This 37-nucleotide RNA belongs to the Rfam family "abiF RNA". The family's RNA type in Rfam is small RNA. The base pairs follow the family's consensus structure, which is taken from published work. From the family's description: Actinobacteria, Bacteroidetes, Clostridia, Proteobacteria, one Clostridia phage.
Nucleotides: 037
Stems, first nucleotide, its partner, number of pairs: 001036005008024003
Number, partner (000 for none) and nucleotide at each position: 001036c002035c003034c004033g005032c006000c007000a008024a009023g010022c011000c012000u013000c014000u015000u016000a017000a018000c019000g020000a021000u022010g023009c024008u025000c026000a027000a028000a029000u030000g031000c032005g033004u034003g035002g036001g037000g